UnaL2 LINE 3' element: a 54-nucleotide RNA from Labeo rohita.

[Rfam]
RNA sequence: AACAUUCCCACUUGUAAGUCACUUUGGAUAAAAGCAUCUGCUAAAUGAAUAAAU
Numbered sequence: 001a002a003c004a005u006u007c008c009c010a011c012u013u014g015u016a017a018g019u020c021a022c023u024u025u026g027g028a029u030a031a032a033a034g035c036a037u038c039u040g041c042u043a044a045a046u047g048a049a050u051a052a053a054u
Stems, first nucleotide, its partner, number of pairs: 013043001014041003022034004

A reference for the family is Baba et al. (2004), "Solution structure of an RNA stem-loop derived from the 3' conserved region of eel LINE UnaL2", RNA. About the family: The eel long interspersed element (LINE) UnaL2 and its partner short interspersed element (SINE) share a conserved 3' tail containing a stem-loop that is critical for their retrotransposition.